[Rfam]
The family of this 97-nucleotide RNA from Dinoponera quadriceps is "mir-2788 microRNA precursor family". Rfam links the family to the GO terms RISC complex and miRNA-mediated post-transcriptional gene silencing.
RNA sequence: CGAAUUUGUUGAGGCAGCUUUGGGGUUUCUAUGCGGCAUGUGCCUCGAUACAAAAUGAACGCAAUGCCCUUGGAAAUCCCAAAAGAGUCCAACGCAU
Numbered sequence: 001c002g003a004a005u006u007u008g009u010u011g012a013g014g015c016a017g018c019u020u021u022g023g024g025g026u027u028u029c030u031a032u033g034c035g036g037c038a039u040g041u042g043c044c045u046c047g048a049u050a051c052a053a054a055a056u057g058a059a060c061g062c063a064a065u066g067c068c069c070u071u072g073g074a075a076a077u078c079c080c081a082a083a084a085g086a087g088u089c090c091a092a093c094g095c096a097u
Stems, first nucleotide, its partner, number of pairs: 008093004014088002021081009031071001033069001035068005041063003
Dot-bracket structure: .......((((..((.....(((((((((.(.(.(((((.(((.................))))))))).).))))))))).....)).))))....